The family of this 157-nucleotide RNA from Methylomusa anaerophila is "c-di-AMP riboswitch aptamer (ydaO/yuaA leader)". The match comes from Rfam's covariance-model search (80 bits). This family represents a conserved RNA structure found upstream of the ydaO and yuaA genes in Bacillus subtilis and related genes in other bacteria. The organism belongs to Methylomusa, within Bacteria.
RNA sequence: AUGAUCAUGUCGCCGAAUCCUUGGGCAAUAGGUACGGGGGAACCAAUAUAUAUUAGGGGUGAAUCUGCCAAUACAAAUAGGGCAGAAGGGUUAUUUCUCUUACUUCUCUUUGACCCUAACCCAACAGCUAACCUCGGAGGCGCAGUGUAAAGAGAGG
Numbered sequence: 001a002u003g004a005u006c007a008u009g010u011c012g013c014c015g016a017a018u019c020c021u022u023g024g025g026c027a028a029u030a031g032g033u034a035c036g037g038g039g040g041a042a043c044c045a046a047u048a049u050a051u052a053u054u055a056g057g058g059g060u061g062a063a064u065c066u067g068c069c070a071a072u073a074c075a076a077a078u079a080g081g082g083c084a085g086a087a088g089g090g091u092u093a094u095u096u097c098u099c100u101u102a103c104u105u106c107u108c109u110u111u112g113a114c115c116c117u118a119a120c121c122c123a124a125c126a127g128c129u130a131a132c133c134u135c136g137g138a139g140g141c142g143c144a145g146u147g148u149a150a151a152g153a154g155a156g157g
Base pairs, nucleotide, nucleotide: 011142012141013140014139019032020031035136036135037134038133039132044056057122058121059120065085066084067083068082088116089115090114091113092112093111